[Rfam]
RNA sequence: AGAUACCUUCGUGAUGUGGUUAUAGUAAUCAAGAUGAGUUGAUUACAAAGGGCAAUAAUGCUAUUGCCCUUAUAUUUUU
Numbered sequence: 001a002g003a004u005a006c007c008u009u010c011g012u013g014a015u016g017u018g019g020u021u022a023u024a025g026u027a028a029u030c031a032a033g034a035u036g037a038g039u040u041g042a043u044u045a046c047a048a049a050g051g052g053c054a055a056u057a058a059u060g061c062u063a064u065u066g067c068c069c070u071u072a073u074a075u076u077u078u079u
Base pairs, nucleotide, nucleotide: 025046026045027044028043029042030041031040032039048071049070050069051068052067053066054065055064056063057062
RNA: ABC transporter regulator